RNA sequence: GGGGUGUGAGAUAGACUAACCUCCACGUGGUGCACCCUGGGCAACGUAUAAUCAUACGGCAAAAAAUCAAUU
Numbered sequence: 001g002g003g004g005u006g007u008g009a010g011a012u013a014g015a016c017u018a019a020c021c022u023c024c025a026c027g028u029g030g031u032g033c034a035c036c037c038u039g040g041g042c043a044a045c046g047u048a049u050a051a052u053c054a055u056a057c058g059g060c061a062a063a064a065a066a067u068c069a070a071u072u
Base pairs, nucleotide, nucleotide: 001038002037003036004035005034006033007032019031020030021029045058046057047056048055049054